[Rfam]
RNA sequence: UGAUAGCGUAGAAGCGCGAGGUUGCUCUUACCUGGUAACGGAUAAGAGGUUUUCCGUGGAGCGAAUGUCAAGUUGAGAAUUGGCGACAA
Numbered sequence: 001u002g003a004u005a006g007c008g009u010a011g012a013a014g015c016g017c018g019a020g021g022u023u024g025c026u027c028u029u030a031c032c033u034g035g036u037a038a039c040g041g042a043u044a045a046g047a048g049g050u051u052u053u054c055c056g057u058g059g060a061g062c063g064a065a066u067g068u069c070a071a072g073u074u075g076a077g078a079a080u081u082g083g084c085g086a087c088a089a
Base pairs, nucleotide, nucleotide: 014057015056016055018054019053020052021051025048026047027046028045029044066088067087068086069085072084073083074082075081
This 89-nucleotide RNA belongs to the Rfam family "S10-Clostridia ribosomal protein leader". By type it is a cis-regulatory leader. A reference for the family is Eckert and Weinberg (2020), "Discovery of 20 novel ribosomal leader candidates in bacteria and archaea", BMC Microbiol.